This 97-nucleotide RNA belongs to the Rfam family "TPP riboswitch aptamer (THI element)". About the family: Vitamin B(1) in its active form thiamin pyrophosphate (TPP) is an essential coenzyme that is synthesised by coupling of pyrimidine and thiazole moieties in bacteria. It scores 58 bits against the family's covariance model.

RNA sequence: CUUGAUGGCUGCGGGUAUCCGUCUCUGACGGAUUGAGAAAUACCGCUUGAACCUGAUCAGUGUUGACGCCUGCGUAGGGAAGCCCAAGUCUGAACAU
Numbered sequence: 001c002u003u004g005a006u007g008g009c010u011g012c013g014g015g016u017a018u019c020c021g022u023c024u025c026u027g028a029c030g031g032a033u034u035g036a037g038a039a040a041u042a043c044c045g046c047u048u049g050a051a052c053c054u055g056a057u058c059a060g061u062g063u064u065g066a067c068g069c070c071u072g073c074g075u076a077g078g079g080a081a082g083c084c085c086a087a088g089u090c091u092g093a094a095c096a097u
Base pairs, nucleotide, nucleotide: 007084008083009082010081011046012045013044014043016040017033018032019031020030021029052078053077054076055075058072059071060070062069